The record is a 92-nucleotide RNA sequence from Nonomuraea phyllanthi, which matches "Selenocysteine transfer RNA" in Rfam.
RNA sequence: GGAGGCGUCUGGGAGCCUGGUGGCCCUCCUGGUCUUCAAAACCAGUGGCGCCGAGUAUCUCGGCGCGGCGGGUUCGAUUCCCGUCCGCCUCC
Numbered sequence: 001g002g003a004g005g006c007g008u009c010u011g012g013g014a015g016c017c018u019g020g021u022g023g024c025c026c027u028c029c030u031g032g033u034c035u036u037c038a039a040a041a042c043c044a045g046u047g048g049c050g051c052c053g054a055g056u057a058u059c060u061c062g063g064c065g066c067g068g069c070g071g072g073u074u075c076g077a078u079u080c081c082c083g084u085c086c087g088c089c090u091c092c
Stems, first nucleotide, its partner, number of pairs: 001092007012027002015024003029045005048066005069083004
Its Rfam clan is "tRNA clan". The match comes from Rfam's covariance-model search (77 bits). Taxonomically the source falls in Nonomuraea (Bacteria, Actinomycetota, Actinomycetes, Streptosporangiales).